Shown here is a 76-nucleotide RNA from Candidatus Brocadia sapporoensis, a member of the family "c-di-GMP-I-GGC riboswitch aptamer".
The literature on the family includes a 2017 paper in Proc Natl Acad Sci U S A by Weinberg et al., "Bioinformatic analysis of riboswitch structures uncovers variant classes with altered ligand specificity".
[Rfam]
RNA sequence: UCAGACAAAGGCAAACCCUGGGCAACCAGGGGACGCAAAGUAAAGGGUCUUAAUAAAGACAGCCUUACUGCCGAAG
Numbered sequence: 001u002c003a004g005a006c007a008a009a010g011g012c013a014a015a016c017c018c019u020g021g022g023c024a025a026c027c028a029g030g031g032g033a034c035g036c037a038a039a040g041u042a043a044a045g046g047g048u049c050u051u052a053a054u055a056a057a058g059a060c061a062g063c064c065u066u067a068c069u070g071c072c073g074a075a076g
Stems, first nucleotide, its partner, number of pairs: 001076001004072001011036002016031006034062001039069004044065003047060003